This 65-nucleotide sequence from Mytilus edulis belongs to the Rfam family "Selenocysteine insertion sequence 1".
Rfam's curators write: The incorporation of selenocysteine into a protein sequence is directed by an in-frame UGA codon (usually a stop codon) within the coding region of the mRNA. Selenoprotein mRNAs contain a conserved secondary structure in the 3' UTR that is required for the distinction of UGA stop from UGA selenocysteine. The selenocysteine insertion sequence (SECIS) is around 60 nt in length and adopts a hairpin structure which is sufficiently well-defined and conserved to act as a computational screen for selenoprotein genes.
The literature on the family includes a 1996 paper in RNA by Walczak et al., "A novel RNA structural motif in the selenocysteine insertion element of eukaryotic selenoprotein mRNAs".
A search with the family's covariance model found it, with a score of 36 bits.
The family's consensus secondary structure is taken from published work.

[Rfam]
RNA sequence: CAUAUAUUUUAUGAUGGUAUAAAACUAAACCCCUAACGGGAGGUAUUGUGCCUGAUAUUCAUAUG
Numbered sequence: 001c002a003u004a005u006a007u008u009u010u011a012u013g014a015u016g017g018u019a020u021a022a023a024a025c026u027a028a029a030c031c032c033c034u035a036a037c038g039g040g041a042g043g044u045a046u047u048g049u050g051c052c053u054g055a056u057a058u059u060c061a062u063a064u065g
Base pairs, nucleotide, nucleotide: 001065002064003063004062005061016052017051018050019049020048021047022046024044025043031040032039033038